Shown here is a 102-nucleotide RNA sequence from Polycladospora coralii, a member of the family "Purine riboswitch aptamer". The family's consensus secondary structure is taken from published work. NCBI's taxonomy places the organism under Bacteria, Bacillati, Bacillota, Caryophanales, Polycladospora. The match comes from Rfam's covariance-model search (84 bits).

RNA sequence: AGUAUUGUGUUAAAUCAUGCUUGUAUAUAUUCAGGGAUAUGGCCUGAACGUUUCUACCUGGCUGCCGUAAAUAGCCGGACUACGAGCUAUAGGAAUUCUCGG
Numbered sequence: 001a002g003u004a005u006u007g008u009g010u011u012a013a014a015u016c017a018u019g020c021u022u023g024u025a026u027a028u029a030u031u032c033a034g035g036g037a038u039a040u041g042g043c044c045u046g047a048a049c050g051u052u053u054c055u056a057c058c059u060g061g062c063u064g065c066c067g068u069a070a071a072u073a074g075c076c077g078g079a080c081u082a083c084g085a086g087c088u089a090u091a092g093g094a095a096u097u098c099u100c101g102g
Base pairs, nucleotide, nucleotide: 019087020086021085022084023083024082025081030048031047032046033045034044035043058078059077060076061075062074063073064072